[Rfam]
Background: A member of the RNA family "TPP riboswitch aptamer (THI element)" from a Selenomonadales bacterium, 107 nucleotides long. The family's consensus secondary structure is taken from published work. Lineage of the source: Bacteria > Bacillati > Bacillota > Negativicutes > Selenomonadales.
RNA sequence: AUAUUCAGCUAGGGGAGCCCGUGAAAUCGGGCUGAGAAGGGGAUAACCCCUGACCCUUUGAACCUGAUCUGGGUAACGCCAGCGUAGGGAAGCAGCGACGCCUAGCG
Numbered sequence: 001a002u003a004u005u006c007a008g009c010u011a012g013g014g015g016a017g018c019c020c021g022u023g024a025a026a027u028c029g030g031g032c033u034g035a036g037a038a039g040g041g042g043a044u045a046a047c048c049c050c051u052g053a054c055c056c057u058u059u060g061a062a063c064c065u066g067a068u069c070u071g072g073g074u075a076a077c078g079c080c081a082g083c084g085u086a087g088g089g090a091a092g093c094a095g096c097g098a099c100g101c102c103u104a105g106c107g
Stems, first nucleotide, its partner, number of pairs: 006095001008093003011057004016051001017032005039050004063088004069082004